RNA sequence: UGACCAAGGGGCCGGGCAGCUCUGAUCGAUGCAGUUCGGAGCAGCCUAGGGGUACAAGGAGUGCCUCCGUCGAGGGCCGGGUCAGGAAAGCA
Numbered sequence: 001u002g003a004c005c006a007a008g009g010g011g012c013c014g015g016g017c018a019g020c021u022c023u024g025a026u027c028g029a030u031g032c033a034g035u036u037c038g039g040a041g042c043a044g045c046c047u048a049g050g051g052g053u054a055c056a057a058g059g060a061g062u063g064c065c066u067c068c069g070u071c072g073a074g075g076g077c078c079g080g081g082u083c084a085g086g087a088a089a090g091c092a
Base pairs, nucleotide, nucleotide: 001084002083003082004081005080010078011077012076013075014047015046016045017044020041021040022039023038024037025036027034049067050066051065052064053063054062055061
The record is a 92-nucleotide RNA sequence from Pseudomonas bharatica, which matches "ivy-DE RNA" in Rfam. The organism belongs to Pseudomonas bharatica, within Bacteria. Rfam's curators put it in the seed alignment. By type it is a cis-regulatory element.